[Rfam]
RNA sequence: UUGAUGGAUGAUGAUAAAAAUCAGACGGAUUCCCACUGAUUUAUACUGUGAUUACACAACCAGCUACUUCUGACUCGA
Numbered sequence: 001u002u003g004a005u006g007g008a009u010g011a012u013g014a015u016a017a018a019a020a021u022c023a024g025a026c027g028g029a030u031u032c033c034c035a036c037u038g039a040u041u042u043a044u045a046c047u048g049u050g051a052u053u054a055c056a057c058a059a060c061c062a063g064c065u066a067c068u069u070c071u072g073a074c075u076c077g078a
Stems, first nucleotide, its partner, number of pairs: 001078004006074001
Source information: A member of the RNA family "Small nucleolar RNA R12" from Populus deltoides, 78 nucleotides long. It scores 68 bits against the family's covariance model. Rfam classes the family as a C/D-box small nucleolar RNA. snoR12 is a C/D box small nucleolar RNA, which acts as a methylation guide for 25S ribosomal RNA in plants. snoR12 has been alternatively named snoZ44 in Arabidopsis and snoZ131 in rice. Gene Ontology terms of the family: nucleolus and RNA processing. A reference for the family is Chen et al. (2003), "The high diversity of snoRNAs in plants: identification and comparative study of 120 snoRNA genes from Oryza sativa", Nucleic Acids Res.